Shown here is a 48-nucleotide RNA, a member of the family "eL15-Euryarchaeota ribosomal protein leader". Rfam classes the family as a cis-regulatory leader. Pairs were carried over by alignment from the consensus structure, which is taken from published work. The literature on the family includes a 2020 paper in BMC Microbiol by Eckert and Weinberg, "Discovery of 20 novel ribosomal leader candidates in bacteria and archaea". The sequence is in the family's curated seed alignment.
RNA sequence: CGGGAGGAGAUCCCGCAGGGAUGUGGCUCAACAGAGCUGAACCGUAAA
Numbered sequence: 001c002g003g004g005a006g007g008a009g010a011u012c013c014c015g016c017a018g019g020g021a022u023g024u025g026g027c028u029c030a031a032c033a034g035a036g037c038u039g040a041a042c043c044g045u046a047a048a
Stems, first nucleotide, its partner, number of pairs: 001015005018043002025038005